A member of the RNA family "Nuclear RNase P" from Leptobrachium leishanense, 299 nucleotides long. A reference for the family is Xiao et al. (2002), "Eukaryotic Ribonuclease P: A Plurality of Ribonucleoprotein Enzymes", Annu Rev Biochem. The source organism's lineage runs through Eukaryota, Vertebrata, Gnathostomata, Teleostomi and Leptobrachium. By type it is a ribozyme. About the family: Ribonuclease P (RNase P) is a ubiquitous endoribonuclease, found in archaea, bacteria and eukarya as well as chloroplasts and mitochondria. Pairs were carried over by alignment from the consensus structure, which is taken from published work.
RNA sequence: UGAGAGAAGCUCAGUGAUGAGGUCACAUUCAGAGUGCAUGGGUUACUCUCCAAAACCUCUGGGAAGGUCUGAGAUAAGAGCUGUCCAUUGCCUUCACAAGGCAUUGCUUGGAACAAGCAAGUGAGUUACCAUCAAAUCAUGGUCUGCUGCCUGCAGGUUGCAUAAGAAAUAGGAGCAUUGUUCCUCCAUGGAUGCUCAGACAACAGACUUGGAAGAUGACUCAUGGCUGGCAAAAUCAAGUCCAAUGGCUGAGAGGAAACAUUCCAGCUUCCUAACUCAAUUCAGACUACUCUCUCUCA
Numbered sequence: 001u002g003a004g005a006g007a008a009g010c011u012c013a014g015u016g017a018u019g020a021g022g023u024c025a026c027a028u029u030c031a032g033a034g035u036g037c038a039u040g041g042g043u044u045a046c047u048c049u050c051c052a053a054a055a056c057c058u059c060u061g062g063g064a065a066g067g068u069c070u071g072a073g074a075u076a077a078g079a080g081c082u083g084u085c086c087a088u089u090g091c092c093u094u095c096a097c098a099a100g101g102c103a104u105u106g107c108u109u110g111g112a113a114c115a116a117g118c119a120a121g122u123g124a125g126u127u128a129c130c131a132u133c134a135a136a137u138c139a140u141g142g143u144c145u146g147c148u149g150c151c152u153g154c155a156g157g158u159u160g161c162a163u164a165a166g167a168a169a170u171a172g173g174a175g176c177a178u179u180g181u182u183c184c185u186c187c188a189u190g191g192a193u194g195c196u197c198a199g200a201c202a203a204c205a206g207a208c209u210u211g212g213a214a215g216a217u218g219a220c221u222c223a224u225g226g227c228u229g230g231c232a233a234a235a236u237c238a239a240g241u242c243c244a245a246u247g248g249c250u251g252a253g254a255g256g257a258a259a260c261a262u263u264c265c266a267g268c269u270u271c272c273u274a275a276c277u278c279a280a281u282u283c284a285g286a287c288u289a290c291u292c293u294c295u296c297u298c299a
Stems, first nucleotide, its partner, number of pairs: 001299007010253006019059004032048005037042001069285005079228004089103005104120006121224007142208003254273005260267001
Dot-bracket structure: (((((((..((((((...((((.........((((((....).))))).......)))).........[[[[[.....((((......(((((.....)))))((((((.....))))))(((((((..............(((.............................................................))).........)))))))))))...................))))))(((((.(......).))))).......]]]]].......)))))))